Shown here is a 203-nucleotide RNA from Anopheles gambiae, a member of the family "Small nucleolar RNA U3".
The source organism's lineage runs through Eukaryota, Arthropoda, Aparaglossata, Panorpida and Anopheles gambiae.
About the family: Small nucleolar RNAs (snoRNAs) are involved in the processing and modification of rRNA in the nucleolus. There are two main classes of snoRNAs: the box C/D class, and the box H/ACA class. U3 snoRNA is a member of the box C/D class.
Rfam classes the family as a C/D-box small nucleolar RNA.
The family's consensus secondary structure is taken from published work.
Rfam's curators put it in the seed alignment.
RNA sequence: AAGACUGUGCUUCAUAGGAUCAUUUCUAUAGGCAAGUUUUCAACUCACUUUCACUCGAAAGUCGAGCUAUUCCAACCCACGAUGAUGAGGUGUAGUGGCUGUCCUGGAGCGUGAAACUGUCGGAUCUUGGCUGCGUCUCUGACGCGUCGAUCUGUGCUUGAUGAUCGUAUCCAUUUGCAAAGGGCAGACACAUUCUGAGUGGU
Numbered sequence: 001a002a003g004a005c006u007g008u009g010c011u012u013c014a015u016a017g018g019a020u021c022a023u024u025u026c027u028a029u030a031g032g033c034a035a036g037u038u039u040u041c042a043a044c045u046c047a048c049u050u051u052c053a054c055u056c057g058a059a060a061g062u063c064g065a066g067c068u069a070u071u072c073c074a075a076c077c078c079a080c081g082a083u084g085a086u087g088a089g090g091u092g093u094a095g096u097g098g099c100u101g102u103c104c105u106g107g108a109g110c111g112u113g114a115a116a117c118u119g120u121c122g123g124a125u126c127u128u129g130g131c132u133g134c135g136u137c138u139c140u141g142a143c144g145c146g147u148c149g150a151u152c153u154g155u156g157c158u159u160g161a162u163g164a165u166c167g168u169a170u171c172c173a174u175u176u177g178c179a180a181a182g183g184g185c186a187g188a189c190a191c192a193u194u195c196u197g198a199g200u201g202g203u
Stems, first nucleotide, its partner, number of pairs: 001040006010031002015028005050059003077202004095191003099187007109168003121154004128149003133145005